[Rfam]
Source information
A member of the RNA family "Small nucleolar RNA SNORD14" from Apostasia shenzhenica, 123 nucleotides long. NCBI's taxonomy places the organism under Eukaryota, Streptophyta, Magnoliopsida, Liliopsida, Apostasia. On this family, see Samarsky et al., Nucleic Acids Res 1996: "An essential domain in Saccharomyces cerevisiae U14 snoRNA is absent in vertebrates, but conserved in other yeasts". U14 small nucleolar RNA (U14 snoRNA) is required for early cleavages of eukaryotic precursor rRNAs. In yeasts, this molecule possess a stem-loop region (known as the Y-domain) which is essential for function. A similar structure, but with a different consensus sequence, is found in plants, but is absent in vertebrates.
RNA sequence: ACCCAAUGAUGAUAAAUUGAAGGCUUGUUUCUCAAAUAUUCGCAGUGGCCGCCUGAGAGCUUUCGCCUCGCCGGGCUUGAGAGCUUCUGCUGCUUAUAAUCCCUUCCUUGGAUGUCUGAGGCC
Numbered sequence: 001a002c003c004c005a006a007u008g009a010u011g012a013u014a015a016a017u018u019g020a021a022g023g024c025u026u027g028u029u030u031c032u033c034a035a036a037u038a039u040u041c042g043c044a045g046u047g048g049c050c051g052c053c054u055g056a057g058a059g060c061u062u063u064c065g066c067c068u069c070g071c072c073g074g075g076c077u078u079g080a081g082a083g084c085u086u087c088u089g090c091u092g093c094u095u096a097u098a099a100u101c102c103c104u105u106c107c108u109u110g111g112a113u114g115u116c117u118g119a120g121g122c123c
Stems, first nucleotide, its partner, number of pairs: 003121002059084006